[Rfam]
RNA sequence: UGUCGGCAGUCCAACGCCGACAAUUACUGAAGAGGCACACCUUCAUUGCCGGCAGUGCGGACGGGUCUCCCAUCCAAGCCAAGGCAGACAAAGCGAGCGCGGACCGCAAGGUCUCAGCAAGCCGACGCGCGUGACGCGUUUUCGUGGUUC
Numbered sequence: 001u002g003u004c005g006g007c008a009g010u011c012c013a014a015c016g017c018c019g020a021c022a023a024u025u026a027c028u029g030a031a032g033a034g035g036c037a038c039a040c041c042u043u044c045a046u047u048g049c050c051g052g053c054a055g056u057g058c059g060g061a062c063g064g065g066u067c068u069c070c071c072a073u074c075c076a077a078g079c080c081a082a083g084g085c086a087g088a089c090a091a092a093g094c095g096a097g098c099g100c101g102g103a104c105c106g107c108a109a110g111g112u113c114u115c116a117g118c119a120a121g122c123c124g125a126c127g128c129g130c131g132u133g134a135c136g137c138g139u140u141u142u143c144g145u146g147g148u149u150c
Base pairs, nucleotide, nucleotide: 001022002021003020004019005018006017007016034050035049036048037047084118127141129139130138131137

The record is a 150-nucleotide RNA sequence from Kumtagia ephedrae, which matches "speF leader" in Rfam.
The match comes from Rfam's covariance-model search (79 bits).
Lineage of the source: Bacteria > Pseudomonadati > Pseudomonadota > Alphaproteobacteria > Kumtagia.
A reference for the family is Corbino et al. (2005), "Evidence for a second class of S-adenosylmethionine riboswitches and other regulatory RNA motifs in alpha-proteobacteria", Genome Biol.
Rfam classes the family as a cis-regulatory leader.
This family is a putative regulatory RNA structure that is found upstream of the speF gene encoding ornithine decarboxylase in Agrobacterium tumefaciens and other alpha-proteobacteria.
Pairs were carried over by alignment from the consensus structure, which was predicted with RNAalifold.